[Rfam]
RNA: c-di-GMP-I riboswitch aptamer
RNA sequence: AUUUAAUAUAGGCAAAGCCAUUGAAAAGUGGGGACGCAAAGCUAUAGGGGCUAACGUAUUCAAAAUACUAUGCCAGCCAGUUGCAUGA
Numbered sequence: 001a002u003u004u005a006a007u008a009u010a011g012g013c014a015a016a017g018c019c020a021u022u023g024a025a026a027a028g029u030g031g032g033g034a035c036g037c038a039a040a041g042c043u044a045u046a047g048g049g050g051c052u053a054a055c056g057u058a059u060u061c062a063a064a065a066u067a068c069u070a071u072g073c074c075a076g077c078c079a080g081u082u083g084c085a086u087g088a
Stems, first nucleotide, its partner, number of pairs: 012037002018031005040082004047078002049074003056068004